[Rfam]
Rfam assigns this 312-nucleotide RNA from Odobenus rosmarus to the family "Small Cajal body-specific RNA 7". Gene Ontology terms of the family: RNA processing and nucleolus. The organism belongs to Odobenus rosmarus, within Eukaryota. Rfam classes the family as a small Cajal body RNA. It scores 345 bits against the family's covariance model.
RNA sequence: UGGAAAUGAUGAAAUAGAGAUAAUUGGGUGUUGAAUGUUGUGUGAUUGGAAAAUUUUAAUGUGUGUGUUAAGCUUAAUAUUUAUAGAUAAUAGAGUGUGUGUGUGGGUGUGUCCUCGCUCAUGGAGGCUAUUGAAAGGGGGCACUGAUUGGUGAUGCUGAUAUUGGAGUGCAUCUGAGGCUGUUGUAGAAAUACACGGGCUGUUGAUUACAACAUUGCCGAUGAUUAUAACCCAAGAACAGCUCACCUAAGUAGCCUAGCACCCUACAAUCUCUAACAGGUUCGUUAAACAUGUUCCUGUGAUCUGAUCCAA
Numbered sequence: 001u002g003g004a005a006a007u008g009a010u011g012a013a014a015u016a017g018a019g020a021u022a023a024u025u026g027g028g029u030g031u032u033g034a035a036u037g038u039u040g041u042g043u044g045a046u047u048g049g050a051a052a053a054u055u056u057u058a059a060u061g062u063g064u065g066u067g068u069u070a071a072g073c074u075u076a077a078u079a080u081u082u083a084u085a086g087a088u089a090a091u092a093g094a095g096u097g098u099g100u101g102u103g104u105g106g107g108u109g110u111g112u113c114c115u116c117g118c119u120c121a122u123g124g125a126g127g128c129u130a131u132u133g134a135a136a137g138g139g140g141g142c143a144c145u146g147a148u149u150g151g152u153g154a155u156g157c158u159g160a161u162a163u164u165g166g167a168g169u170g171c172a173u174c175u176g177a178g179g180c181u182g183u184u185g186u187a188g189a190a191a192u193a194c195a196c197g198g199g200c201u202g203u204u205g206a207u208u209a210c211a212a213c214a215u216u217g218c219c220g221a222u223g224a225u226u227a228u229a230a231c232c233c234a235a236g237a238a239c240a241g242c243u244c245a246c247c248u249a250a251g252u253a254g255c256c257u258a259g260c261a262c263c264c265u266a267c268a269a270u271c272u273c274u275a276a277c278a279g280g281u282u283c284g285u286u287a288a289a290c291a292u293g294u295u296c297c298u299g300u301g302a303u304c305u306g307a308u309c310c311a312a
Stems, first nucleotide, its partner, number of pairs: 001311004181214008190204004194199001